Rfam assigns this 64-nucleotide sequence from Croceibacter atlanticus to the family "S15-Flavobacteria ribosomal protein leader".
The source organism's lineage runs through Bacteria, Flavobacteriia, Flavobacteriales, Croceibacter and Croceibacter atlanticus.
The literature on the family includes a 2020 paper in BMC Microbiol by Eckert and Weinberg, "Discovery of 20 novel ribosomal leader candidates in bacteria and archaea".
By type it is a cis-regulatory leader.

[Rfam]
RNA sequence: UAUCUUUGCGGCUUGGUAGAACGUCUGCCAUGUACAUGAUAUUCAUUGAAACAAUUUUGGAAUG
Numbered sequence: 001u002a003u004c005u006u007u008g009c010g011g012c013u014u015g016g017u018a019g020a021a022c023g024u025c026u027g028c029c030a031u032g033u034a035c036a037u038g039a040u041a042u043u044c045a046u047u048g049a050a051a052c053a054a055u056u057u058u059g060g061a062a063u064g
Stems, first nucleotide, its partner, number of pairs: 014030006